[Rfam]
RNA: Mason-Pfizer monkey virus packaging signal
Organism: Molossus molossus
RNA sequence: UGGUGCCCAACGUGGGGCUCCAGCAUGGGGAAUACAGUGAAUGACGCCAUUCAAGUGGCCGGCAGAAAGGAAAGGAAAAGAGGGAACGACGUGGGAACCUGCUGCGUCUGCACCCCUCGGGUAAGUGAAUGGCGAUUAUGGGUCAAGAAAUGAGCCAACAUAAGAUAUUUGUUGAAGGACUAGGAAAGGCUCUCAAGGCACGAGGAGUAAAGGUAAAAAUUAGGCAUUUGUGUCAGUCUUUUGAUUAUAUUAAGGAAGUUUGCCCUU
Numbered sequence: 001u002g003g004u005g006c007c008c009a010a011c012g013u014g015g016g017g018c019u020c021c022a023g024c025a026u027g028g029g030g031a032a033u034a035c036a037g038u039g040a041a042u043g044a045c046g047c048c049a050u051u052c053a054a055g056u057g058g059c060c061g062g063c064a065g066a067a068a069g070g071a072a073a074g075g076a077a078a079a080g081a082g083g084g085a086a087c088g089a090c091g092u093g094g095g096a097a098c099c100u101g102c103u104g105c106g107u108c109u110g111c112a113c114c115c116c117u118c119g120g121g122u123a124a125g126u127g128a129a130u131g132g133c134g135a136u137u138a139u140g141g142g143u144c145a146a147g148a149a150a151u152g153a154g155c156c157a158a159c160a161u162a163a164g165a166u167a168u169u170u171g172u173u174g175a176a177g178g179a180c181u182a183g184g185a186a187a188g189g190c191u192c193u194c195a196a197g198g199c200a201c202g203a204g205g206a207g208u209a210a211a212g213g214u215a216a217a218a219a220u221u222a223g224g225c226a227u228u229u230g231u232g233u234c235a236g237u238c239u240u241u242u243g244a245u246u247a248u249a250u251u252a253a254g255g256a257a258g259u260u261u262g263c264c265c266u267u
Stems, first nucleotide, its partner, number of pairs: 006030003012026003038044001080118002082115002087110001090106005126145003130142001133140002152193001154190003201243005207237002211229004252267004